[Rfam]
RNA sequence: CCUGUUAUGCAACUAACAGUAGCCUAAGGGUAGUGCGUCGCUGGUAACGGCGGGGUUCGAAGCUCCCUGACAAUGUACCCCCAUUUCGAUGGUUAAUUCUCACUGUGAGGUGAGGAUGGAGAUAUUGCCAAUAGCAGGUGAUUGAGGGG
Numbered sequence: 001c002c003u004g005u006u007a008u009g010c011a012a013c014u015a016a017c018a019g020u021a022g023c024c025u026a027a028g029g030g031u032a033g034u035g036c037g038u039c040g041c042u043g044g045u046a047a048c049g050g051c052g053g054g055g056u057u058c059g060a061a062g063c064u065c066c067c068u069g070a071c072a073a074u075g076u077a078c079c080c081c082c083a084u085u086u087c088g089a090u091g092g093u094u095a096a097u098u099c100u101c102a103c104u105g106u107g108a109g110g111u112g113a114g115g116a117u118g119g120a121g122a123u124a125u126u127g128c129c130a131a132u133a134g135c136a137g138g139u140g141a142u143u144g145a146g147g148g149g
Stems, first nucleotide, its partner, number of pairs: 002019006027068004033058001035056002038053006081092004093120002096117001103110002124142006